[Rfam]
Shown here is a 70-nucleotide RNA from Mesorhizobium hungaricum, a member of the family "ybhL leader". Rfam's curators write: This family is a putative regulatory RNA structure that is found upstream of an uncharacterized membrane protein in alpha-proteobacteria. Rfam links the family to the GO term regulation of gene expression. A reference for the family is Corbino et al. (2005), "Evidence for a second class of S-adenosylmethionine riboswitches and other regulatory RNA motifs in alpha-proteobacteria", Genome Biol. It scores 52 bits against the family's covariance model.

RNA sequence: CAGGCAUGCUGGAGCCCCGCCAGCGGCGCCUGGGCUCCGUUUCGGGAGCCUGACACCCGACGGGGCAGAG
Numbered sequence: 001c002a003g004g005c006a007u008g009c010u011g012g013a014g015c016c017c018c019g020c021c022a023g024c025g026g027c028g029c030c031u032g033g034g035c036u037c038c039g040u041u042u043c044g045g046g047a048g049c050c051u052g053a054c055a056c057c058c059g060a061c062g063g064g065g066c067a068g069a070g
Stems, first nucleotide, its partner, number of pairs: 014066006025057002031052007